[Rfam]
RNA sequence: CCUGGAUCUAUGAUGCAACUAUUAACUGCGUUAUCUUUCUGCAACCUUUAAGGUGCUGAAGAAUACAUUACCUGCUGAGAUCCAUG
Numbered sequence: 001c002c003u004g005g006a007u008c009u010a011u012g013a014u015g016c017a018a019c020u021a022u023u024a025a026c027u028g029c030g031u032u033a034u035c036u037u038u039c040u041g042c043a044a045c046c047u048u049u050a051a052g053g054u055g056c057u058g059a060a061g062a063a064u065a066c067a068u069u070a071c072c073u074g075c076u077g078a079g080a081u082c083c084a085u086g
Base pairs, nucleotide, nucleotide: 001086003084004083005082006081007080
Record summary:
A member of the RNA family "Small nucleolar RNA snoR27" from Setaria italica, 86 nucleotides long. Rfam 15.1 lists 649 matches to the family in 212 species. A reference for the family is Brown et al. (2001), "Multiple snoRNA gene clusters from Arabidopsis", RNA. Gene Ontology terms of the family: RNA processing and nucleolus. Pairs were carried over by alignment from the consensus structure, which was predicted with WAR. The family is grouped with related families in Rfam's "snR68 clan". It is annotated as a C/D-box small nucleolar RNA.